[Rfam]
This 174-nucleotide RNA from Theobroma cacao belongs to the Rfam family "MIR530 microRNA precursor family". NCBI's taxonomy places the organism under Eukaryota, Tracheophyta, rosids, Malvaceae, Theobroma. On this family, see Lu et al., Plant J 2008: "Stress-responsive microRNAs in Populus".
RNA sequence: GCUAAGAUGUAGCCUUUAUCUGCAUUUGCACCUGCACCUUCUUGUUUUUAUUUGGUUCACUUCAGCACCCUUCUGCUUUAGAAACCAAAGCUUGGGCAGAUGUGUUUGUGGUGGAGGAAGAUAAGGGCCAAGCAAAGAGGUGCAGGGGCAGCUGCAGGUGAAUGCCAUUUUGGC
Number, nucleotide and partner (000 for none) at each position: 001g174002c173003u172004a171005a170006g169007a168008u167009g166010u000011a000012g165013c164014c000015u162016u161017u160018a159019u158020c157021u156022g155023c154024a153025u000026u151027u150028g149029c148030a000031c146032c145033u144034g143035c142036a141037c140038c139039u138040u000041c000042u000043u000044g000045u000046u000047u000048u000049u000050a000051u000052u000053u000054g085055g000056u083057u082058c000059a000060c000061u000062u000063c000064a000065g000066c000067a000068c000069c000070c000071u000072u000073c000074u000075g000076c000077u000078u000079u000080a000081g000082a057083a056084a000085c054086c000087a000088a000089a000090g000091c000092u000093u000094g000095g000096g000097c000098a000099g000100a000101u000102g000103u000104g000105u000106u000107u000108g000109u000110g000111g000112u000113g000114g000115a000116g000117g000118a000119a000120g000121a000122u000123a000124a000125g000126g000127g000128c000129c000130a000131a000132g000133c000134a000135a000136a000137g000138a039139g038140g037141u036142g035143c034144a033145g032146g031147g000148g029149c028150a027151g026152c000153u024154g023155c022156a021157g020158g019159u018160g017161a016162a015163u000164g013165c012166c009167a008168u007169u006170u005171u004172g003173g002174c001